Annotation:
Rfam assigns this 88-nucleotide RNA from Crotophaga sulcirostris to the family "mir-1426 microRNA precursor family". Rfam links the family to the GO terms RISC complex and miRNA-mediated post-transcriptional gene silencing. The family has 2 seed sequences and 326 matches in Rfam 15.1. The organism belongs to Crotophaga, within Eukaryota.
[Rfam]
RNA sequence: CAAGGGUGAUCCUCUUUCCUUAACUCAUGCCGCUGUGCCUUUUUGUUUAACUCACAAUUGUAUGAGUUGAGUACAGAGUGUCAUUCUG
Numbered sequence: 001c002a003a004g005g006g007u008g009a010u011c012c013u014c015u016u017u018c019c020u021u022a023a024c025u026c027a028u029g030c031c032g033c034u035g036u037g038c039c040u041u042u043u044u045g046u047u048u049a050a051c052u053c054a055c056a057a058u059u060g061u062a063u064g065a066g067u068u069g070a071g072u073a074c075a076g077a078g079u080g081u082c083a084u085u086c087u088g
Stems, first nucleotide, its partner, number of pairs: 004086007012078002019071010034056004